[Rfam]
RNA sequence: AUACAUUCUCUCUCAUGGCAGGGAGUGCUGAAAGUUACGCCUUUGGAUAUAGAUGAGUGAGACCUAUAAGGAAGCUUUUUGGAGCUCAAACCCUGUAAAAUCCC
Numbered sequence: 001a002u003a004c005a006u007u008c009u010c011u012c013u014c015a016u017g018g019c020a021g022g023g024a025g026u027g028c029u030g031a032a033a034g035u036u037a038c039g040c041c042u043u044u045g046g047a048u049a050u051a052g053a054u055g056a057g058u059g060a061g062a063c064c065u066a067u068a069a070g071g072a073a074g075c076u077u078u079u080u081g082g083a084g085c086u087c088a089a090a091c092c093c094u095g096u097a098a099a100a101u102c103c104c
Stems, first nucleotide, its partner, number of pairs: 016030005034063003038059003044055002081094002084091001
RNA: Heliobacter pylori small RNA HPnc0580
Organism: Helicobacter suis